RNA: ylbH leader
Organism: Gracilibacillus boraciitolerans
RNA sequence: AAAAAAAACCUGCAGUUAUCAUUUAACUGCAGGCUCUUUUUAUUUUCUUAUUUAUAAGAAAAUAAAAAGAUAAAGGGAGAGGAGAAACCGGAGGAAGAACUUAUGGGGGGAAAUGUAAGUCUUCUCCGAAU
Numbered sequence: 001a002a003a004a005a006a007a008a009c010c011u012g013c014a015g016u017u018a019u020c021a022u023u024u025a026a027c028u029g030c031a032g033g034c035u036c037u038u039u040u041u042a043u044u045u046u047c048u049u050a051u052u053u054a055u056a057a058g059a060a061a062a063u064a065a066a067a068a069g070a071u072a073a074a075g076g077g078a079g080a081g082g083a084g085a086a087a088c089c090g091g092a093g094g095a096a097g098a099a100c101u102u103a104u105g106g107g108g109g110g111a112a113a114u115g116u117a118a119g120u121c122u123u124c125u126c127c128g129a130a131u
Stems, first nucleotide, its partner, number of pairs: 009033010035077005044061006089128004094124004099120005